[Rfam]
RNA sequence: CGGAAGUGCCUUGCUGAUUGUGCGUGCUGGAAGCCUGAAGAACUCCCAUCAUCGCAGGUCACAAGGCACUUCCUCGUUUUCCUAGCCGCUAUCCACAAGGCUCUGGCCGGUGGAUCAAG
Number, nucleotide and partner (000 for none) at each position: 001c000002g073003g072004a071005a070006g069007u068008g067009c066010c065011u064012u063013g062014c000015u061016g060017a059018u000019u057020g000021u056022g055023c054024g053025u051026g050027c000028u048029g000030g046031a000032a044033g043034c000035c000036u000037g000038a000039a000040g000041a000042a000043c033044u032045c000046c030047c000048a028049u000050c026051a025052u000053c024054g023055c022056a021057g019058g000059u017060c016061a015062c013063a012064a011065g010066g009067c008068a007069c006070u005071u004072c003073c002074u000075c000076g000077u000078u000079u000080u000081c000082c000083u000084a000085g000086c000087c000088g000089c000090u000091a000092u000093c000094c000095a000096c000097a000098a000099g000100g116101c000102u114103c113104u112105g111106g000107c000108c000109g000110g000111u105112g104113g103114a102115u000116c100117a000118a000119g000
Shown here is a 119-nucleotide sequence from Streptomyces sp. Ncost-T10-10d, a member of the family "Actinobacteria sRNA Ms_IGR-7". Rfam 15.1 lists 463 matches to the family in 194 species. It is annotated as a small RNA. Pairs were carried over by alignment from the consensus structure.